[Rfam]
RNA sequence: CCGUGCUAGAUGGGGAGUUAGCGGUGCCCUAUAACCUGCAAUCCGCUACAGCAGGAUUGAAUUCCUCAUUGCGGCUUAUAUCUUGUAAGGUCUGCCCUGUAAAAGUGGCGUUGAUAGUUGGGUCCCACGCAAUAAAAGCCCAUGAAACCCGUCAGAUUCGGAAGAAAGCAGCGGUAAGUGGAUACUUUCAUGUGCCGUGGAUUAACCUGACUUGAGUUAACUAUACAGGUAACGCUUAUGAGGUUAAGUCAAGGUGAGGUGCACGG
Numbered sequence: 001c002c003g004u005g006c007u008a009g010a011u012g013g014g015g016a017g018u019u020a021g022c023g024g025u026g027c028c029c030u031a032u033a034a035c036c037u038g039c040a041a042u043c044c045g046c047u048a049c050a051g052c053a054g055g056a057u058u059g060a061a062u063u064c065c066u067c068a069u070u071g072c073g074g075c076u077u078a079u080a081u082c083u084u085g086u087a088a089g090g091u092c093u094g095c096c097c098u099g100u101a102a103a104a105g106u107g108g109c110g111u112u113g114a115u116a117g118u119u120g121g122g123u124c125c126c127a128c129g130c131a132a133u134a135a136a137a138g139c140c141c142a143u144g145a146a147a148c149c150c151g152u153c154a155g156a157u158u159c160g161g162a163a164g165a166a167a168g169c170a171g172c173g174g175u176a177a178g179u180g181g182a183u184a185c186u187u188u189c190a191u192g193u194g195c196c197g198u199g200g201a202u203u204a205a206c207c208u209g210a211c212u213u214g215a216g217u218u219a220a221c222u223a224u225a226c227a228g229g230u231a232a233c234g235c236u237u238a239u240g241a242g243g244u245u246a247a248g249u250c251a252a253g254g255u256g257a258g259g260u261g262c263a264c265g266g
Stems, first nucleotide, its partner, number of pairs: 001266006009058003012030004017025003035055005064259007073250005080244010093231002097228005105221002107218003116212008125200005130192002133190001135188003138183001140181004149174004157166003
A member of the RNA family "Bacterial large signal recognition particle RNA" from Clostridium putrefaciens, 266 nucleotides long.
Its family is annotated with signal recognition particle, plasma membrane targeting and SRP-dependent cotranslational protein targeting to membrane, signal sequence recognition in the Gene Ontology.
The match comes from Rfam's covariance-model search (216 bits).
From the family's description: The signal recognition particle (SRP) is a universally conserved ribonucleoprotein involved in the co-translational targeting of proteins to membranes.
NCBI's taxonomy places the organism under Bacteria, Bacillota, Eubacteriales, Clostridiaceae, Clostridium.
Its Rfam clan is "SRP clan".